[Rfam]
RNA sequence: AACCGCACUAUCGAUGAAUGGAUUCACCCGCGAGAUGACGAGGUUGUUUCACCUAGGACGAGGACAUGGCAUCCUAAACCAGCCAUUACACGAAAUUAAUAGGAUGUCACGUUCUCCUCCUAGAUGGAACAACCACGUCAUCUCACGAGUGAAUCCAUUCAUCAAUAGUGUGGUU
Numbered sequence: 001a002a003c004c005g006c007a008c009u010a011u012c013g014a015u016g017a018a019u020g021g022a023u024u025c026a027c028c029c030g031c032g033a034g035a036u037g038a039c040g041a042g043g044u045u046g047u048u049u050c051a052c053c054u055a056g057g058a059c060g061a062g063g064a065c066a067u068g069g070c071a072u073c074c075u076a077a078a079c080c081a082g083c084c085a086u087u088a089c090a091c092g093a094a095a096u097u098a099a100u101a102g103g104a105u106g107u108c109a110c111g112u113u114c115u116c117c118u119c120c121u122a123g124a125u126g127g128a129a130c131a132a133c134c135a136c137g138u139c140a141u142c143u144c145a146c147g148a149g150u151g152a153a154u155c156c157a158u159u160c161a162u163c164a165a166u167a168g169u170g171u172g173g174u175u
Stems, first nucleotide, its partner, number of pairs: 001175007009167003013163003017159003021155007030146001032144002035141005042134007051125001054122002057119002063113003069107008078097001085096002

MIR807 microRNA precursor family: a 175-nucleotide RNA sequence. The literature on the family includes a 2006 paper in FEBS Lett by Luo et al., "Rice embryogenic calli express a unique set of microRNAs, suggesting regulatory roles of microRNAs in plant post-embryogenic development". Pairs were carried over by alignment from the consensus structure, which was predicted with WAR.